[Rfam]
RNA sequence: UUGCACAAUGCUAACCCCGGGUUUGUCGGAUAGACUUCAGUCCCUUGUGAUGAACGAAAGCCCUAAGGCUGUGCUAGAUGUACACAGCCGUUCAAUGUUGCGAGUGUGACACUACGCGUGGAUGAGUGGCCUGUGUCAAAGUAAUGGAUACAGUC
Dot-bracket structure: ..(((((..((.......((((((((((......................))).))..)))))....))))))).............(((((...((.((((.(.........................).)))).))....)))))........
Numbered sequence: 001u002u003g004c005a006c007a008a009u010g011c012u013a014a015c016c017c018c019g020g021g022u023u024u025g026u027c028g029g030a031u032a033g034a035c036u037u038c039a040g041u042c043c044c045u046u047g048u049g050a051u052g053a054a055c056g057a058a059a060g061c062c063c064u065a066a067g068g069c070u071g072u073g074c075u076a077g078a079u080g081u082a083c084a085c086a087g088c089c090g091u092u093c094a095a096u097g098u099u100g101c102g103a104g105u106g107u108g109a110c111a112c113u114a115c116g117c118g119u120g121g122a123u124g125a126g127u128g129g130c131c132u133g134u135g136u137c138a139a140a141g142u143a144a145u146g147g148a149u150a151c152a153g154u155c
Stems, first nucleotide, its partner, number of pairs: 003074005010069002019063005024056002026053003088147005096138002099135004104130001

Shown here is a 155-nucleotide RNA from Triticum aestivum, a member of the family "small nucleolar RNA snoR134". Taxonomically the source falls in Triticum (Eukaryota, Streptophytina, Tracheophyta, Magnoliopsida). It is annotated as an H/ACA-box small nucleolar RNA. For this family Rfam cites "Mining small RNA sequencing data: a new approach to identify small nucleolar RNAs in Arabidopsis" (Chen and Wu, Nucleic Acids Res, 2009). The match comes from Rfam's covariance-model search (61 bits).